[Rfam]
RNA sequence: GAAAAAGAGCAAGCGCCAGGACUCCGGGCCUCCCGGCCCGGAGUUGACGAGGUAGACGUUCAUCGAGCUUUCGGCGGGUGCGUCUCGGCCCUCGGGCGGUCGUCAGGGCGGCGACAAAUCCCGGCGGCGACGCCGGGGACAAAACGCCGUCCGGGCCCGAAG
Numbered sequence: 001g002a003a004a005a006a007g008a009g010c011a012a013g014c015g016c017c018a019g020g021a022c023u024c025c026g027g028g029c030c031u032c033c034c035g036g037c038c039c040g041g042a043g044u045u046g047a048c049g050a051g052g053u054a055g056a057c058g059u060u061c062a063u064c065g066a067g068c069u070u071u072c073g074g075c076g077g078g079u080g081c082g083u084c085u086c087g088g089c090c091c092u093c094g095g096g097c098g099g100u101c102g103u104c105a106g107g108g109c110g111g112c113g114a115c116a117a118a119u120c121c122c123g124g125c126g127g128c129g130a131c132g133c134c135g136g137g138g139a140c141a142a143a144a145c146g147c148c149g150u151c152c153g154g155g156c157c158c159g160a161a162g
Stems, first nucleotide, its partner, number of pairs: 020045008029036001054085005063074004086102005106152007120137007

Shown here is a 162-nucleotide sequence from Rubrobacter xylanophilus, a member of the family "glmS glucosamine-6-phosphate activated ribozyme aptamer". Rfam's curators write: This entry contains a glucosamine-6-phosphate activated ribozyme that is found in the mRNA for GlmS. GlmS is an enzyme that uses fructose-6-phosphate and glutamine to generate glucosamine-6-phosphate.